[Rfam]
Shown here is a 145-nucleotide RNA from Cuscuta campestris, a member of the family "small nucleolar RNA snoR135".
Rfam 15.1 lists 837 matches to the family in 220 species.
Pairs were carried over by alignment from the consensus structure, which was predicted with RNAalifold.
Taxonomically the source falls in Cuscuta sect. Cleistogrammica (Eukaryota, Viridiplantae, Tracheophyta, lamiids).
On this family, see Chen and Wu, Nucleic Acids Res 2009: "Mining small RNA sequencing data: a new approach to identify small nucleolar RNAs in Arabidopsis".
RNA sequence: UAUGCAGAAAUUGUGUGUAUUGGUUGUGUUAAGAUGAAUCGUGCACAUGACCAAAAGUGUUCUCUGCAAAAGUAUAUAUGAGGAAGAUGGGCAGUUGUGUUUCAUCCUUUGUUAAAACAUUUCAACAAUCAUCUUCUUUAUAUUU
Numbered sequence: 001u002a003u004g005c006a007g008a009a010a011u012u013g014u015g016u017g018u019a020u021u022g023g024u025u026g027u028g029u030u031a032a033g034a035u036g037a038a039u040c041g042u043g044c045a046c047a048u049g050a051c052c053a054a055a056a057g058u059g060u061u062c063u064c065u066g067c068a069a070a071a072g073u074a075u076a077u078a079u080g081a082g083g084a085a086g087a088u089g090g091g092c093a094g095u096u097g098u099g100u101u102u103c104a105u106c107c108u109u110u111g112u113u114a115a116a117a118c119a120u121u122u123c124a125a126c127a128a129u130c131a132u133c134u135u136c137u138u139u140a141u142a143u144u145u
Stems, first nucleotide, its partner, number of pairs: 004067005010061001015046006080139011094126004